[Rfam]
RNA sequence: UCGCGCCGGGUGACAACCGGCCACAACGGGGACGAUGGACGCGGUCAUUUUGCCGGUUUCUGACCGCGACACCAACGCAUCGGUACGCGCUGACAUCUGACCUGUUCUCGAC
Numbered sequence: 001u002c003g004c005g006c007c008g009g010g011u012g013a014c015a016a017c018c019g020g021c022c023a024c025a026a027c028g029g030g031g032a033c034g035a036u037g038g039a040c041g042c043g044g045u046c047a048u049u050u051u052g053c054c055g056g057u058u059u060c061u062g063a064c065c066g067c068g069a070c071a072c073c074a075a076c077g078c079a080u081c082g083g084u085a086c087g088c089g090c091u092g093a094c095a096u097c098u099g100a101c102c103u104g105u106u107c108u109c110g111a112c
Stems, first nucleotide, its partner, number of pairs: 007110003011023002014020001025106006034097004040068007071084003
The record is a 112-nucleotide RNA from Afipia sp. 1NLS2, which matches "Rhizobiales sRNA Atu_At1" in Rfam. A reference for the family is Wilms et al. (2012), "Deep sequencing uncovers numerous small RNAs on all four replicons of the plant pathogen Agrobacterium tumefaciens", RNA Biol. The base pairs follow the family's consensus structure, which was predicted with CMfinder. NCBI's taxonomy places the organism under Bacteria, Pseudomonadati, Alphaproteobacteria, Nitrobacteraceae, Afipia. The sequence is in the family's curated seed alignment. Rfam classes the family as a small RNA.